The record is a 46-nucleotide RNA from Paenibacillus foliorum, which matches "PreQ1 (pre queuosine) riboswitch aptamer" in Rfam. Rfam links the family to the GO term queuosine biosynthetic process. Rfam 15.1 lists 873 matches to the family in 692 species. A reference for the family is Balaratnam et al. (2021), "A chemical probe based on the PreQ(1) metabolite enables transcriptome-wide mapping of binding sites", Nat Commun. About the family: This family is a bacterial riboswitch that binds to the metabolite preQ1, an intermediate in the biosynthesis of the modified nucleoside queuosine from GTP. One example of this riboswitch is located in the leader of the Bacillus subtilis ykvJKLM (queCDEF) operon which encodes four genes necessary for queuosine production. PreQ1 binding to the riboswitch aptamer is thought to induce premature transcription termination within the leader to down-regulate expression of these genes. The source organism's lineage runs through Bacteria, Bacillati, Caryophanales, Paenibacillaceae and Paenibacillus.
[Rfam]
RNA sequence: CUGGUCGCGGUUCGAAAUCCUCCCGCGUAAUCAAAACUAAGGAGAA
Numbered sequence: 001c002u003g004g005u006c007g008c009g010g011u012u013c014g015a016a017a018u019c020c021u022c023c024c025g026c027g028u029a030a031u032c033a034a035a036a037c038u039a040a041g042g043a044g045a046a
Stems, first nucleotide, its partner, number of pairs: 006027005016038001